The record is a 71-nucleotide RNA sequence from Pectinatus brassicae, which matches "tRNA" in Rfam. The match comes from Rfam's covariance-model search (66 bits). The family's consensus secondary structure is taken from published work.

[Rfam]
RNA sequence: GCGGGCGUAGUUCAUUGGUAGAACGUGAGCUUCCCAAGCUUAAGAGGUGGGUUCGAUUCCCAUCGCCCGCU
Number, nucleotide and partner (000 for none) at each position: 001g070002c069003g068004g067005g066006c065007g064008u000009a000010g024011u023012u022013c021014a000015u000016u000017g000018g000019u000020a000021g013022a012023a011024c010025g000026u042027g041028a040029g039030c038031u000032u000033c000034c000035c000036a000037a000038g030039c029040u028041u027042a026043a000044g000045a000046g000047g063048u062049g061050g060051g059052u000053u000054c000055g000056a000057u000058u000059c051060c050061c049062a048063u047064c007065g006066c005067c004068c003069g002070c001071u000